[Rfam]
Nucleotides: 110
Base pairs, nucleotide, nucleotide: 003049004048005047006046007045008044009043010042016039017038018037019036020035021034051105052104053103054102055101056100057099058098060097061096
Number, partner (000 for none) and nucleotide at each position: 001000a002000u003049a004048c005047c006046c007045u008044g009043c010042g011000g012000a013000g014000u015000g016039c017038u018037c019036a020035g021034g022000u023000c024000c025000g026000c027000c028000g029000c030000a031000u032000c033000u034021c035020c036019u037018g038017g039016g040000u041000c042010c043009g044008u045007a046006g047005g048004g049003u050000c051105g052104g053103c054102c055101g056100g057099c058098g059000c060097g061096c062000g063000a064000g065000u066000g067000g068000u069000u070000a071000g072000g073000a074000g075000u076000g077000g078000c079000c080000u081000c082000c083000u084000c085000g086000a087000g088000a089000u090000c091000c092000a093000c094000u095000u096061g097060c098058c099057g100056c101055c102054g103053g104052c105051c106000a107000c108000c109000u110000c
Rfam assigns this 110-nucleotide sequence to the family "EcpR1". The literature on the family includes a 2012 paper in RNA Biol by Wilms et al., "Deep sequencing uncovers numerous small RNAs on all four replicons of the plant pathogen Agrobacterium tumefaciens". From the family's description: Perviously named SmelC291, SmrC10, or Sra33. According to its overproduction phenotype it was renamed Elongated Cell Phenotype RNA1. Induced by stress,EcpR1 negatively regulates cell cycle master regulatory genes dnaA and gcrA at post-transcriptional level by base pairing between its strongly conserved GC-rich loop and the target mRNAs. By type it is a small RNA. The family's consensus secondary structure was predicted with WAR.